[Rfam]
Rfam assigns this 186-nucleotide RNA sequence from Desulfotignum phosphitoxidans to the family "Group II catalytic intron D1-D4-3". The source organism's lineage runs through Bacteria, Pseudomonadati, Desulfobacteria, Desulfobacteraceae and Desulfotignum phosphitoxidans. Group II introns are found in rRNA, tRNA and mRNA of organelles in fungi, plants and protists, and also in mRNA in bacteria. Rfam links the family to the GO term Group II intron splicing.
Nucleotides: 186
Base pairs, nucleotide, nucleotide: 001016002015003014004013005012006011045186047184048183049182053178057173058172059171060170061169062168063166064165065164066163067162079161080160081159082158083157088153089152090151092149093148094147095146096145097144098143100128101127102126103125106121107120108119109118
Number, partner (000 for none) and nucleotide at each position: 001016g002015u003014a004013c005012c006011g007000g008000u009000g010000a011006c012005g013004g014003u015002g016001c017000u018000u019000c020000g021000g022000g023000a024000g025000g026000a027000a028000g029000c030000u031000g032000c033000c034000c035000u036000g037000c038000c039000g040000a041000g042000g043000c044000u045186g046000g047184g048183u049182g050000c051000c052000g053178c054000a055000a056000a057173g058172g059171u060170a061169c062168g063166g064165g065164g066163u067162g068000a069000c070000g071000a072000a073000c074000a075000g076000a077000a078000a079161u080160c081159g082158a083157g084000u085000c086000a087000g088153g089152c090151g091000u092149g093148c094147a095146u096145u097144g098143u099000g100128g101127g102126a103125c104000g105000a106121g107120c108119c109118u110000g111000c112000a113000a114000c115000a116000c117000a118109a119108g120107g121106c122000a123000a124000a125103g126102u127101c128100c129000u130000c131000u132000a133000u134000c135000c136000a137000u138000c139000u140000c141000a142000g143098g144097c145096a146095a147094u148093g149092u150000c151090c152089g153088u154000a155000u156000a157083c158082u159081c160080g161079g162067c163066a164065u165064c166063c167000a168062u169061g170060u171059a172058u173057c174000g175000a176000a177000a178053g179000a180000c181000g182049u183048g184047u185000g186045u